[Rfam]
RNA: Small nucleolar RNA SNORD111
RNA sequence: UGGCCUGAAAUGAUGUUACGACUUCAUGUCUCUUCUCUGAGAUAUGUCAUGGAGACAGACAGGUCUUUCUGAUCAGGCUU
Numbered sequence: 001u002g003g004c005c006u007g008a009a010a011u012g013a014u015g016u017u018a019c020g021a022c023u024u025c026a027u028g029u030c031u032c033u034u035c036u037c038u039g040a041g042a043u044a045u046g047u048c049a050u051g052g053a054g055a056c057a058g059a060c061a062g063g064u065c066u067u068u069c070u071g072a073u074c075a076g077g078c079u080u
Base pairs, nucleotide, nucleotide: 002079003078004077005076